The record is an 88-nucleotide RNA, which matches "tRNA" in Rfam. Rfam describes the family as follows. Transfer RNA (tRNA) molecules are approximately 80 nucleotides in length. Rfam's curators put it in the seed alignment.

RNA sequence: GAAGGUAUGGCUGAGUGGCUUAAGGCAUUGGUUUGCUAAAUCGACAUACAAGAAGAUUGUAUCAUGGGUUCAAAUCCCAUUUCCUCCG
Numbered sequence: 001g002a003a004g005g006u007a008u009g010g011c012u013g014a015g016u017g018g019c020u021u022a023a024g025g026c027a028u029u030g031g032u033u034u035g036c037u038a039a040a041u042c043g044a045c046a047u048a049c050a051a052g053a054a055g056a057u058u059g060u061a062u063c064a065u066g067g068g069u070u071c072a073a074a075u076c077c078c079a080u081u082u083c084c085u086c087c088g
Base pairs, nucleotide, nucleotide: 001087003085004084005083007081010026011025012024028044029043030042031041032040064080065079066078067077068076